[Rfam]
RNA: tRNA
RNA sequence: GCUUGCAUGGUGUAAUGGUCAGCACAUAAGAUUCUGAUUCUUGAGAGCGGUUCGAUUCCGCGUGCGAGCU
Numbered sequence: 001g002c003u004u005g006c007a008u009g010g011u012g013u014a015a016u017g018g019u020c021a022g023c024a025c026a027u028a029a030g031a032u033u034c035u036g037a038u039u040c041u042u043g044a045g046a047g048c049g050g051u052u053c054g055a056u057u058c059c060g061c062g063u064g065c066g067a068g069c070u
Stems, first nucleotide, its partner, number of pairs: 001069007010025004027043005047061004